Overview:
Shown here is a 418-nucleotide RNA sequence from Kyrpidia spormannii, a member of the family "Bacterial RNase P class A". Taxonomically the source falls in Kyrpidia (Bacteria, Bacillota, Bacilli, Caryophanales). By type it is a ribozyme. Rfam links the family to the GO terms tRNA processing, dimeric ribonuclease P complex and ribonuclease P activity. A search with the family's covariance model found it, with a score of 278 bits.

RNA sequence: GAAGGCAACCGGGCAAUCGCGCGUGCAGUGCCGAAAGGCCGCAUGCGAGGAAAGUCCGAGCUCCGCAGGGCAGGGUGCUGGGUAACACCCAGUGGGAGCGAUCCUAAGGAAAGUGCCACAGAAAUGUAGACCGCCGACGGCCCGGCCGGGUGGUUCCCGGGCGGGAUCGGGCAAGGAUGCAACGGUGCGGUAAGAGCGCACCAGCGGUGCGGAGACGCAUCGGCUAGGUAAACCCCACCCGGAGCAAGACCGGAUAGGAGCGCAAUGCGGUGGCCCGCCGCGCGCUCGGGUAGGUCGCUGGAGCCGGCCGGCAACGGUCGGCCUAGAUAGAUGAUUGCCCCUCCAGAUCGGUGGGAGCGCCGCGGGCGCGCCGGCACCACCGGGAGGACAGAACUCGGCUUAUAGGUUGCCUUUCCGC
Number, nucleotide and partner (000 for none) at each position: 001g414002a413003a412004g411005g410006c409007a408008a407009c406010c405011g403012g339013g338014c337015a336016a335017u334018c333019g000020c047021g046022c045023g044024u043025g042026c041027a000028g039029u000030g000031c000032c000033g000034a000035a000036a000037g000038g000039c028040c000041g026042c025043a024044u023045g022046c021047g020048a000049g000050g000051a000052a401053a400054g399055u000056c398057c397058g396059a395060g394061c244062u243063c242064c241065g000066c000067a000068g276069g275070g274071c273072a000073g240074g239075g238076u237077g236078c092079u091080g090081g089082g088083u000084a000085a000086c000087a000088c082089c081090c080091a079092g078093u107094g105095g104096g103097a102098g000099c000100g000101a000102u097103c096104c095105u094106a000107a093108g235109g234110a000111a000112a000113g233114u232115g229116c228117c227118a000119c000120a000121g000122a000123a000124a000125u000126g000127u000128a000129g000130a000131c176132c175133g172134c171135c170136g000137a000138c169139g168140g167141c000142c165143c164144g000145g000146c000147c000148g000149g000150g000151u000152g000153g000154u000155u000156c000157c000158c000159g000160g000161g000162c000163g000164g143165g142166a000167u140168c139169g138170g135171g134172c133173a000174a000175g132176g131177a000178u000179g000180c000181a000182a000183c000184g202185g201186u200187g199188c198189g197190g000191u000192a000193a000194g000195a000196g000197c189198g188199c187200a186201c185202c184203a000204g224205c222206g221207g220208u219209g218210c217211g216212g000213a000214g000215a000216c211217g210218c209219a208220u207221c206222g205223g000224c204225u000226a000227g117228g116229u115230a000231a000232a114233c113234c109235c108236c077237a076238c075239c074240c073241g064242g063243a062244g061245c000246a000247a000248g296249a295250c294251c293252g000253g000254a000255u000256a000257g000258g287259a286260g285261c284262g283263c282264a000265a000266u000267g281268c280269g279270g278271u277272g000273g071274c070275c069276c068277g271278c270279c269280g268281c267282g263283c262284g261285c260286u259287c258288g000289g000290g000291u000292a000293g251294g250295u249296c248297g000298c000299u000300g000301g000302a000303g322304c321305c320306g319307g318308c317309c316310g315311g000312c000313a000314a000315c310316g309317g308318u307319c306320g305321g304322c303323c000324u000325a000326g000327a000328u000329a000330g000331a000332u000333g018334a017335u016336u015337g014338c013339c012340c000341c000342u000343c000344c000345a000346g000347a000348u000349c000350g000351g000352u000353g000354g000355g000356a000357g000358c000359g000360c000361c000362g000363c000364g000365g000366g000367c000368g000369c000370g000371c000372c000373g000374g000375c000376a000377c000378c000379a000380c000381c000382g000383g000384g000385a000386g000387g000388a000389c000390a000391g000392a000393a000394c060395u059396c058397g057398g056399c054400u053401u052402a000403u011404a000405g010406g009407u008408u007409g006410c005411c004412u003413u002414u001415c000416c000417g000418c000